[Rfam]
The record is a 60-nucleotide RNA sequence from Pseudomonas oryzihabitans, which matches "nhaA-I RNA" in Rfam. Rfam's curators put it in the seed alignment. Rfam's curators write: Acidobacteria, Alphaproteobacteria, Betaproteobacteria and Gammaproteobacteria, Verrucomicrobia, cand. division NC10. Rfam classes the family as a riboswitch. Taxonomically the source falls in Pseudomonas oryzihabitans (Bacteria, Pseudomonadota, Pseudomonadales, Pseudomonadaceae).
RNA sequence: GGGUGUCGCCGCAUUCACGCGGUAGGACAGGUUGAACUGAGCGCAGGUCGGGCCGCCGCG
Numbered sequence: 001g002g003g004u005g006u007c008g009c010c011g012c013a014u015u016c017a018c019g020c021g022g023u024a025g026g027a028c029a030g031g032u033u034g035a036a037c038u039g040a041g042c043g044c045a046g047g048u049c050g051g052g053c054c055g056c057c058g059c060g
Stems, first nucleotide, its partner, number of pairs: 005028003008023005042060003046057003